[Rfam]
RNA sequence: UCCUCCGCGAGGAGGCGCCUGAAGGAAGCUGUAGGCAAAGUGCGGGUCCGACGAACAGGAAGCGGAUAGAGGCGGCGUAGCGGGGUGAGGCAGCCAUAAAGGCCAAAGCCCAAAACUUGCACGGAACGCUACGGCGUAGAUCCGACGGACAUAAGCAUGAAAGUCACGCGUC
Numbered sequence: 001u002c003c004u005c006c007g008c009g010a011g012g013a014g015g016c017g018c019c020u021g022a023a024g025g026a027a028g029c030u031g032u033a034g035g036c037a038a039a040g041u042g043c044g045g046g047u048c049c050g051a052c053g054a055a056c057a058g059g060a061a062g063c064g065g066a067u068a069g070a071g072g073c074g075g076c077g078u079a080g081c082g083g084g085g086u087g088a089g090g091c092a093g094c095c096a097u098a099a100a101g102g103c104c105a106a107a108g109c110c111c112a113a114a115a116c117u118u119g120c121a122c123g124g125a126a127c128g129c130u131a132c133g134g135c136g137u138a139g140a141u142c143c144g145a146c147g148g149a150c151a152u153a154a155g156c157a158u159g160a161a162a163g164u165c166a167c168g169c170g171u172c
Stems, first nucleotide, its partner, number of pairs: 002015005028172001030170003035164002040158004046150005063144005072137003076133007083111004089104003
RNA: Group II catalytic intron D1-D4-3